The record is a 72-nucleotide RNA from Nomascus leucogenys, which matches "mir-622 microRNA precursor family" in Rfam.
RNA sequence: CAAGUACUGGUCUCAGCAGAUUGGAGAGAGCACUACAGUGGUCACCACGCAGUCCGCUGAGGUUGGAGCUGU
Numbered sequence: 001c002a003a004g005u006a007c008u009g010g011u012c013u014c015a016g017c018a019g020a021u022u023g024g025a026g027a028g029a030g031c032a033c034u035a036c037a038g039u040g041g042u043c044a045c046c047a048c049g050c051a052g053u054c055c056g057c058u059g060a061g062g063u064u065g066g067a068g069c070u071g072u
Base pairs, nucleotide, nucleotide: 003070004069005068007066008065009064010063011062012061013060014059015058016057017056019054020053021052022051023050026045028043029042031040032039033038